[Rfam]
RNA sequence: CGGGUAGCCCCGUACUGUUGUCCGACCCCCCGACCCGAUGGCAGUACGGGGCUCUCAA
Numbered sequence: 001c002g003g004g005u006a007g008c009c010c011c012g013u014a015c016u017g018u019u020g021u022c023c024g025a026c027c028c029c030c031c032g033a034c035c036c037g038a039u040g041g042c043a044g045u046a047c048g049g050g051g052c053u054c055u056c057a058a
Stems, first nucleotide, its partner, number of pairs: 003056002007052016
The family of this 58-nucleotide RNA from Mycolicibacterium hassiacum is "F6 TB sRNA". The match comes from Rfam's covariance-model search (58 bits). A reference for the family is Arnvig and Young (2009), "Identification of small RNAs in Mycobacterium tuberculosis", Mol Microbiol. It is annotated as a small RNA. Pairs were carried over by alignment from the consensus structure, which is taken from published work.